A member of the RNA family "STnc560 Hfq binding RNA" from Citrobacter freundii, 239 nucleotides long. A search with the family's covariance model found it, with a score of 142 bits. Pairs were carried over by alignment from the consensus structure, which was predicted with WAR. Lineage of the source: Bacteria > Pseudomonadota > Enterobacterales > Enterobacteriaceae > Citrobacter freundii complex.

RNA sequence: CGUUCAUUGGGGUUGUUGAUGAUACGUUGGGUGACUAUUCGUUAUCUGCGCAGGGAAUUGCCUGAUAGCGUAUAAAGCAAAACACAAAUCUAUCCAUGCAAGCAUUUACCGCUGGUUUAUCCGGCGGUUUUUUUUACCUGUCGUUCAGGUAGUCGGCAUUCAGGACAAAAAAAUGGCCCCUUGAGCAGUGAUGCUACAAGGGGCCAGUUCGGUGCAGGACUAUCGUCGUUCAUCAAUCA
Dot-bracket structure: .................(.(((....)).).).......(((((.(.(.(((......)))).).))))).....................................((((((((.....)))))))).....................(........................(((((((((.(((....)))..))))))))).)................................
Numbered sequence: 001c002g003u004u005c006a007u008u009g010g011g012g013u014u015g016u017u018g019a020u021g022a023u024a025c026g027u028u029g030g031g032u033g034a035c036u037a038u039u040c041g042u043u044a045u046c047u048g049c050g051c052a053g054g055g056a057a058u059u060g061c062c063u064g065a066u067a068g069c070g071u072a073u074a075a076a077g078c079a080a081a082a083c084a085c086a087a088a089u090c091u092a093u094c095c096a097u098g099c100a101a102g103c104a105u106u107u108a109c110c111g112c113u114g115g116u117u118u119a120u121c122c123g124g125c126g127g128u129u130u131u132u133u134u135u136a137c138c139u140g141u142c143g144u145u146c147a148g149g150u151a152g153u154c155g156g157c158a159u160u161c162a163g164g165a166c167a168a169a170a171a172a173a174u175g176g177c178c179c180c181u182u183g184a185g186c187a188g189u190g191a192u193g194c195u196a197c198a199a200g201g202g203g204c205c206a207g208u209u210c211g212g213u214g215c216a217g218g219a220c221u222a223u224c225g226u227c228g229u230u231c232a233u234c235a236a237u238c239a
Stems, first nucleotide, its partner, number of pairs: 018032001020030001021028002040070005046064001048062001050061003108128008150207001175205009185194003